[Rfam]
A member of the RNA family "Streptomyces RNA 3920" from Streptomyces sp. PBH53, 127 nucleotides long.
A search with the family's covariance model found it, with a score of 108 bits.
Taxonomically the source falls in Streptomyces (Bacteria, Actinomycetota, Actinomycetes, Kitasatosporales).
About the family: Identified by deep sequencing of transcriptome at the end of exponential growth phase.
By type it is a small RNA.
For this family Rfam cites "Deep sequencing-based identification of small non-coding RNAs in Streptomyces coelicolor" (Vockenhuber et al., RNA Biol, 2011).
Pairs were carried over by alignment from the consensus structure.

RNA sequence: GAUAGGCCCCUGUCGCUAGCGUGAUUGGACACUGACGCAGAGUCAACUAGCCUGGUUCUCGCGGCAUUUCUCCCGCGAAAGCCGCAGGCGGUCCGAGCCACGAGGGGGGAGGCUCGGACCGUCCGGA
Numbered sequence: 001g002a003u004a005g006g007c008c009c010c011u012g013u014c015g016c017u018a019g020c021g022u023g024a025u026u027g028g029a030c031a032c033u034g035a036c037g038c039a040g041a042g043u044c045a046a047c048u049a050g051c052c053u054g055g056u057u058c059u060c061g062c063g064g065c066a067u068u069u070c071u072c073c074c075g076c077g078a079a080a081g082c083c084g085c086a087g088g089c090g091g092u093c094c095g096a097g098c099c100a101c102g103a104g105g106g107g108g109g110a111g112g113c114u115c116g117g118a119c120c121g122u123c124c125g126g127a
Base pairs, nucleotide, nucleotide: 001014002013003012004011005010015051016050017049018048021032022031023030033045034044035043036042058075061072063070064069076084077083087123088122089121090120091119092118093117094116095115096114097113098112099111101108